[Rfam]
RNA sequence: AGUGAUGGUAGAGGUGCGAACUUCAAUAGUAAUAAUCCGGAGAAGGAUGAGCUUCAACGAAGGAUUAUGAAAGGGUCAGUUCGCCGAAGUAAAGAAAAACUCAUUAUUUUCUUUGCUGGUUUUGCAUUAAAUAAAUGCAAGACUGUCAAAACAAGAAACUGUUUUGGAGGGCUAUCUCACUG
Dot-bracket structure: ......(((((....((((((..(.......(((((((.......................)))))))......)...))))))...(((((((((((........)))))))))))(((((((((((.....))))))))))).(((((((........)))))))....)))))......
The family of this 182-nucleotide sequence from Niallia nealsonii is "Lysine riboswitch aptamer". Taxonomically the source falls in Niallia (Bacteria, Bacillati, Bacilli, Bacillaceae).